[Rfam]
RNA: Hepatitis C virus stem-loop SL2531 and SL2549AU
RNA sequence: UGCUCGCGGAUGCUCGCAUCUGCGCUUGCCUCUGGAUGAUGUUACUCAUAUCCCAAGUGGAAGCAGCUCUGG
Numbered sequence: 001u002g003c004u005c006g007c008g009g010a011u012g013c014u015c016g017c018a019u020c021u022g023c024g025c026u027u028g029c030c031u032c033u034g035g036a037u038g039a040u041g042u043u044a045c046u047c048a049u050a051u052c053c054c055a056a057g058u059g060g061a062a063g064c065a066g067c068u069c070u071g072g
Stems, first nucleotide, its partner, number of pairs: 006023007024067002027065003031061001034058001037055002